[Rfam]
RNA sequence: GAGUCCACGGCAGUGGCGAGCCUAAGGGGGACAAAGCCCCGUAGGCGUAGGGAAACCGACAAGCCCGCAGCCGGGCCGCAAGGCACCGGCGAGGGGCGGGGUCCUCACAGGGCCCGGAGUCACUGCCGUGGGACCAGAAACCGGGCGAUCUAGGCGGGGGCAGGGCGAAGCCGGGGGAAACCCCGGUGGAGGCCCGCAAGGGUUCUGACGUGCAAUUCGUUCCCCUGACCCCCGUCUAGGGGCAAAAGACCAAUCUAGCCCGGUGAUAGCUGGUU
Numbered sequence: 001g002a003g004u005c006c007a008c009g010g011c012a013g014u015g016g017c018g019a020g021c022c023u024a025a026g027g028g029g030g031a032c033a034a035a036g037c038c039c040c041g042u043a044g045g046c047g048u049a050g051g052g053a054a055a056c057c058g059a060c061a062a063g064c065c066c067g068c069a070g071c072c073g074g075g076c077c078g079c080a081a082g083g084c085a086c087c088g089g090c091g092a093g094g095g096g097c098g099g100g101g102u103c104c105u106c107a108c109a110g111g112g113c114c115c116g117g118a119g120u121c122a123c124u125g126c127c128g129u130g131g132g133a134c135c136a137g138a139a140a141c142c143g144g145g146c147g148a149u150c151u152a153g154g155c156g157g158g159g160g161c162a163g164g165g166c167g168a169a170g171c172c173g174g175g176g177g178a179a180a181c182c183c184c185g186g187u188g189g190a191g192g193c194c195c196g197c198a199a200g201g202g203u204u205c206u207g208a209c210g211u212g213c214a215a216u217u218c219g220u221u222c223c224c225c226u227g228a229c230c231c232c233c234g235u236c237u238a239g240g241g242g243c244a245a246a247a248g249a250c251c252a253a254u255c256u257a258g259c260c261c262g263g264u265g266a267u268a269g270c271u272g273g274u275u
Base pairs, nucleotide, nucleotide: 005131006130007129008128009127010126011125012124013123014122015121016120017119020046021045022044023043026040027039028038029037050057051056063097064096065095066094070090071089072088073087100114101113102112103111134273135272137270141263142262143261144260145259146258150239151238152237153236154235155234156233157232158231159230160229161227163195164194165193166192170187171186172185173184174183175182176181200224201223202222205219207218208217241251242250
A member of the RNA family "Archaeal large subunit ribosomal RNA" from Staphylothermus hellenicus, 275 nucleotides of a longer RNA. The family's consensus secondary structure is taken from published work. The source organism's lineage runs through Archaea, Thermoprotei, Desulfurococcales, Staphylothermus and Staphylothermus hellenicus.